[Rfam]
RNA sequence: CGAGGCCGCGCGGGAGAGUCCCUGCCAUCAUGAGCAGGGCGCCGAAGGAGCAAGUCCUCCCUUGAAUCUCUCAGGCACAGUCACCGCGCGGGCGAG
Numbered sequence: 001c002g003a004g005g006c007c008g009c010g011c012g013g014g015a016g017a018g019u020c021c022c023u024g025c026c027a028u029c030a031u032g033a034g035c036a037g038g039g040c041g042c043c044g045a046a047g048g049a050g051c052a053a054g055u056c057c058u059c060c061c062u063u064g065a066a067u068c069u070c071u072c073a074g075g076c077a078c079a080g081u082c083a084c085c086g087c088g089c090g091g092g093c094g095a096g
Stems, first nucleotide, its partner, number of pairs: 006091008020039006041076003044072002048070003054063001